[Rfam]
Nucleotides: 220
Base pairs, nucleotide, nucleotide: 014058015057016056017055018054019053059121060120061119062118064116065115067114068113069112070111072109139214140213141212142211143210144209145208146207147206148205149204150203153173154172155171156170157169
Number, partner (000 for none) and nucleotide at each position: 001000a002000c003000a004000c005000g006000a007000g008000a009000g010000a011000g012000g013000a014058g015057g016056u017055g018054g019053u020000c021000c022000a023000c024000c025000g026000g027000u028000g029000u030000a031000u032000u033000c034000c035000g036000a037000c038000a039000g040000g041000a042000c043000u044000c045000g046000u047000g048000a049000g050000g051000u052000g053019g054018c055017u056016g057015u058014c059121c060120g061119c062118u063000a064116g065115g066000a067114c068113c069112g070111c071000c072109c073000a074000a075000c076000c077000a078000g079000c080000a081000g082000u083000a084000c085000u086000g087000g088000a089000g090000c091000c092000g093000g094000c095000a096000g097000g098000c099000g100000c101000c102000c103000g104000a105000c106000g107000g108000g109072g110000c111070g112069c113068g114067g115065u116064c117000c118062g119061g120060u121059g122000a123000a124000u125000a126000u127000c128000a129000g130000g131000c132000a133000g134000u135000c136000a137000c138000c139214c140213a141212g142211c143210c144209c145208u146207c147206g148205g149204g150203c151000a152000c153173c154172c155171g156170g157169g158000a159000c160000c161000c162000a163000g164000u165000c166000c167000g168000c169157c170156c171155c172154g173153g174000g175000c176000c177000u178000u179000c180000c181000g182000c183000g184000g185000c186000c187000u188000u189000g190000u191000c192000g193000g194000g195000a196000g197000g198000a199000g200000c201000g202000c203150g204149c205148c206147c207146g208145g209144g210143g211142g212141c213140u214139g215000u216000c217000u218000g219000c220000u

A member of the RNA family "Actinobacteria sRNA Ms_IGR-5" from Actinokineospora terrae, 220 nucleotides long.
By type it is a small RNA.
It scores 76 bits against the family's covariance model.